[Rfam]
Nucleotides: 045
Base pairs, nucleotide, nucleotide: 006021007020008019009018010017011016
Number, partner (000 for none) and nucleotide at each position: 001000c002000c003000a004000a005000a006021g007020g008019c009018u010017c011016u012000u013000u014000u015000a016011a017010g018009a019008g020007c021006c022000a023000c024000c025000c026000a027000c028000u029000g030000u031000c032000u033000c034000a035000u036000u037000a038000a039000a040000g041000g042000g043000c044000u045000a